[Rfam]
RNA sequence: GGCGAUGCCUGCAUAAGGAGCCACAACGGGGUGCGUGUCACCUACUUCGCUCCUGGGAAGGUCUGAGGCCGGGAUCAUUUGACGCUCUAGCAGGGCGGUCACAGAAAUGUGACGGGCUCCACGAGAAAUUCCGCCUCGUUCCCCAGCUGUGAGUCCCGGUGACGGGUUGCGAGGUCGGGGAACAACGCCAGUCAGGGUGGUUGGCGGAGGCGCUGGGAUAGGGGUCCGAUCGGCUGUCUGAGUCUAAUAUGCGGGACGGUGCCUCCGUUAUUUACGGAAAGCUUCCGUAACUCAAUUCAGACUACUCCGCC
Numbered sequence: 001g002g003c004g005a006u007g008c009c010u011g012c013a014u015a016a017g018g019a020g021c022c023a024c025a026a027c028g029g030g031g032u033g034c035g036u037g038u039c040a041c042c043u044a045c046u047u048c049g050c051u052c053c054u055g056g057g058a059a060g061g062u063c064u065g066a067g068g069c070c071g072g073g074a075u076c077a078u079u080u081g082a083c084g085c086u087c088u089a090g091c092a093g094g095g096c097g098g099u100c101a102c103a104g105a106a107a108u109g110u111g112a113c114g115g116g117c118u119c120c121a122c123g124a125g126a127a128a129u130u131c132c133g134c135c136u137c138g139u140u141c142c143c144c145a146g147c148u149g150u151g152a153g154u155c156c157c158g159g160u161g162a163c164g165g166g167u168u169g170c171g172a173g174g175u176c177g178g179g180g181a182a183c184a185a186c187g188c189c190a191g192u193c194a195g196g197g198u199g200g201u202u203g204g205c206g207g208a209g210g211c212g213c214u215g216g217g218a219u220a221g222g223g224g225u226c227c228g229a230u231c232g233g234c235u236g237u238c239u240g241a242g243u244c245u246a247a248u249a250u251g252c253g254g255g256a257c258g259g260u261g262c263c264u265c266c267g268u269u270a271u272u273u274a275c276g277g278a279a280a281g282c283u284u285c286c287g288u289a290a291c292u293c294a295a296u297u298c299a300g301a302c303u304a305c306u307c308c309g310c311c
Stems, first nucleotide, its partner, number of pairs: 002310003008254002016054005029043005063300005073231004083097005098113006114227007132212006256288004261283001
Background
This 311-nucleotide sequence from Tropilaelaps mercedesae belongs to the Rfam family "Nuclear RNase P". A reference for the family is Frank and Pace (1998), "Ribonuclease P: unity and diversity in a tRNA processing ribozyme", Annu Rev Biochem. It is annotated as a ribozyme. Lineage of the source: Eukaryota > Metazoa > Arachnida > Monogynaspida > Tropilaelaps.